Shown here is a 100-nucleotide RNA sequence from Aliicoccus persicus, a member of the family "Guanidine-I riboswitch aptamer". The organism belongs to Aliicoccus, within Bacteria. For this family Rfam cites "Structural Basis for Ligand Binding to the Guanidine-I Riboswitch" (Reiss et al., Structure, 2017).
RNA sequence: UACGAAGUUUUCUAGGGUUCCGCUCACUUGAGGUCUGGUCCAAGAGAAAACGCAAUGCGAGCGCCCGCAUUGUACACGGAAGGACAAAAGCCUGGGAGAG
Dot-bracket structure: ......((((((..((...((((((....)))..).)).))....))))))((((((((......)))))))).(.[...(((.......))).)..]..